[Rfam]
RNA sequence: CUUCCCGUGCAGGUGGGGAUCAGUAGCAAUGCUGUGCACUGGAAGGUAUUGCACUUGUCCCGGCCUGUGUAGGAAUG
Numbered sequence: 001c002u003u004c005c006c007g008u009g010c011a012g013g014u015g016g017g018g019a020u021c022a023g024u025a026g027c028a029a030u031g032c033u034g035u036g037c038a039c040u041g042g043a044a045g046g047u048a049u050u051g052c053a054c055u056u057g058u059c060c061c062g063g064c065c066u067g068u069g070u071a072g073g074a075a076u077g
Stems, first nucleotide, its partner, number of pairs: 004073002009068006016061005022055003026052008
RNA: mir-92 microRNA precursor family
Organism: Takifugu flavidus